[Rfam]
RNA sequence: AAGAAUGUUUUCUAGGGUUCCGCAAAUUUAUUUGGACUGGUCCGAGAGAAAACUCACAGCGUUUGUUGUGCCACGGAAGGAUAAAAGCCUGGGAGAU
Numbered sequence: 001a002a003g004a005a006u007g008u009u010u011u012c013u014a015g016g017g018u019u020c021c022g023c024a025a026a027u028u029u030a031u032u033u034g035g036a037c038u039g040g041u042c043c044g045a046g047a048g049a050a051a052a053c054u055c056a057c058a059g060c061g062u063u064u065g066u067u068g069u070g071c072c073a074c075g076g077a078a079g080g081a082u083a084a085a086a087g088c089c090u091g092g093g094a095g096a097u
Base pairs, nucleotide, nucleotide: 007053008052009051010050011049012048015043016042020040021039022037023034024033025032026031055070056069057068058067059066060065072092074095078090079089080088
Description:
Shown here is a 97-nucleotide RNA from Cytobacillus solani, a member of the family "Guanidine-I riboswitch aptamer". The match comes from Rfam's covariance-model search (83 bits). NCBI's taxonomy places the organism under Bacteria, Bacilli, Caryophanales, Bacillaceae, Cytobacillus. On this family, see Trachman RJ 3rd and Ferre-D'Amare, RNA 2021: "An uncommon [K(+)(Mg(2+))2] metal ion triad imparts stability and selectivity to the Guanidine-I riboswitch". This family represents a conserved RNA structure found upstream of the ykkC and yxkD genes in Bacillus subtilis and related genes in other bacteria.